[Rfam]
RNA sequence: AUACUUACCUGGCAGGGGGGACACCAUGAGCACAGAGGUGGUUUUCCCAGGGCGAGGCUUAUCCGUUGCACUCCAGAUGUGCUGACCCCUGCUGUUUUCCCAAAUGUGGGAAACUCGACUGAAUAAUAUGUGGUAGUGGGGGACUGUGUUUACCCUCUCCUCAU
Numbered sequence: 001a002u003a004c005u006u007a008c009c010u011g012g013c014a015g016g017g018g019g020g021a022c023a024c025c026a027u028g029a030g031c032a033c034a035g036a037g038g039u040g041g042u043u044u045u046c047c048c049a050g051g052g053c054g055a056g057g058c059u060u061a062u063c064c065g066u067u068g069c070a071c072u073c074c075a076g077a078u079g080u081g082c083u084g085a086c087c088c089c090u091g092c093u094g095u096u097u098u099c100c101c102a103a104a105u106g107u108g109g110g111a112a113a114c115u116c117g118a119c120u121g122a123a124u125a126a127u128a129u130g131u132g133g134u135a136g137u138g139g140g141g142g143a144c145u146g147u148g149u150u151u152a153c154c155c156u157c158u159c160c161u162c163a164u
Stems, first nucleotide, its partner, number of pairs: 013121003016048006023042005049090004054086001056083003060079004092117001094115001095113003099109002137163005143158001146155001148153001
RNA: U1 spliceosomal RNA
Organism: Molossus molossus